The family of this 79-nucleotide RNA sequence from Quercus lobata is "Small nucleolar RNA R160". On this family, see Chen et al., Nucleic Acids Res 2003: "The high diversity of snoRNAs in plants: identification and comparative study of 120 snoRNA genes from Oryza sativa". Taxonomically the source falls in Quercus (Eukaryota, Viridiplantae, Streptophyta, eudicotyledons). The pairing is the family consensus, mapped onto this sequence. A search with the family's covariance model found it, with a score of 62 bits. snoR160 is a C/D box small nucleolar RNA, which acts as a methylation guide for 25S ribosomal RNA in plants. snoR160 has been alternatively named snoZ270 in rice.

Nucleotides: 079
Base pairs, nucleotide, nucleotide: 001079003077004076005075
Number, partner (000 for none) and nucleotide at each position: 001079a002000u003077c004076a005075a006000u007000a008000u009000g010000a011000c012000g013000a014000g015000g016000u017000u018000a019000u020000u021000a022000u023000a024000u025000c026000c027000g028000a029000a030000u031000a032000u033000g034000a035000u036000g037000u038000a039000g040000a041000a042000c043000c044000c045000u046000a047000u048000u049000u050000c051000a052000u053000a054000u055000u056000g057000g058000c059000u060000u061000u062000c063000a064000a065000a066000g067000u068000u069000c070000u071000c072000u073000g074000a075005u076004u077003g078000c079001u